Rfam assigns this 167-nucleotide part of an RNA from Fusarium irregulare to the family "Ascomycota telomerase RNA".
Rfam 15.1 lists 475 matches to the family in 456 species.
A search with the family's covariance model found it, with a score of 333 bits.
The source organism's lineage runs through Eukaryota, Fungi, Pezizomycotina, Sordariomycetes and Fusarium incarnatum-equiseti species complex.
The family is grouped with related families in Rfam's "Telomerase clan".
Gene Ontology terms of the family: telomerase activity, telomerase catalytic core complex and telomere maintenance via telomerase.
For this family Rfam cites "The common ancestral core of vertebrate and fungal telomerase RNAs" (Qi et al., Nucleic Acids Res, 2013).

[Rfam]
RNA sequence: CACGCCUGCGAGGAUCGAUUGGUCCCAACAGGUCCCUCAUAUCAGCCGCAAGGUUGAGCUUGAGACGAAAGGGUGGUUUUUAUGGAUGUAUUUUGUCCACCCGUUAAUGCCCUCCAUGCCUCUUGCUGGCGAGAACUUUGGAGAGGAAUCAAAAACUUGUCCAAGUU
Numbered sequence: 001c002a003c004g005c006c007u008g009c010g011a012g013g014a015u016c017g018a019u020u021g022g023u024c025c026c027a028a029c030a031g032g033u034c035c036c037u038c039a040u041a042u043c044a045g046c047c048g049c050a051a052g053g054u055u056g057a058g059c060u061u062g063a064g065a066c067g068a069a070a071g072g073g074u075g076g077u078u079u080u081u082a083u084g085g086a087u088g089u090a091u092u093u094u095g096u097c098c099a100c101c102c103g104u105u106a107a108u109g110c111c112c113u114c115c116a117u118g119c120c121u122c123u124u125g126c127u128g129g130c131g132a133g134a135a136c137u138u139u140g141g142a143g144a145g146g147a148a149u150c151a152a153a154a155a156c157u158u159g160u161c162c163a164a165g166u167u
Stems, first nucleotide, its partner, number of pairs: 007030002012026002016021001035067001036064004042057002047052001085161003088156002091154005110146002112143004121134005